[Rfam]
RNA sequence: UAUUUACCGAGACAUAAAAGUCUAAGAUGUUCUGUAAGCUUGCUUACAAAGAACAUCGUAAACUUUUCCGGAUCGCCCCUGACAUGAGCACGAAGAAGCACGCAGAGCUUUGGGAGUGCGAAUGUCAGGCAGGAAUCGUAAAAGCACGAAGUGUGACGAUUCCGUAAAUA
Dot-bracket structure: (((((((....(..(..((((.((.(((((((((((((....)))))..)))))))).)).))))....)..)....((((((((..((((...(((((.(...).)))))....))))..))))))))...(((((((....((((...)))).))))))).)))))))

This 170-nucleotide RNA sequence from Oribacterium parvum belongs to the Rfam family "Clostridiales-1 RNA". Pairs were carried over by alignment from the consensus structure, which is taken from published work. A search with the family's covariance model found it, with a score of 83 bits.